[Rfam]
Flavo-1 RNA: a 172-nucleotide sequence from Kordia sp. SMS9.

RNA sequence: CUUUGGCGUUAAGGAUAGCAGCGACAUCCUUUUUAAAGCUUUGAAUCGUCAUUACGAGGAGGAAUCGACGAAGUAAUCUGUUUUUUUAAUACACAGAUUUCCACGAAUUUUUAAAAAAAUUCUCGCAAUGACGUUUCUCUUUAAAAAGAUAUAGCGGAUAGCCUGACCCUUU
Numbered sequence: 001c002u003u004u005g006g007c008g009u010u011a012a013g014g015a016u017a018g019c020a021g022c023g024a025c026a027u028c029c030u031u032u033u034u035a036a037a038g039c040u041u042u043g044a045a046u047c048g049u050c051a052u053u054a055c056g057a058g059g060a061g062g063a064a065u066c067g068a069c070g071a072a073g074u075a076a077u078c079u080g081u082u083u084u085u086u087u088a089a090u091a092c093a094c095a096g097a098u099u100u101c102c103a104c105g106a107a108u109u110u111u112u113a114a115a116a117a118a119a120u121u122c123u124c125g126c127a128a129u130g131a132c133g134u135u136u137c138u139c140u141u142u143a144a145a146a147a148g149a150u151a152u153a154g155c156g157g158a159u160a161g162c163c164u165g166a167c168c169c170u171u172u
Base pairs, nucleotide, nucleotide: 012164013163014162016160017159021155022154026150027149028148032145033144034143035142036141037140038139

It scores 45 bits against the family's covariance model.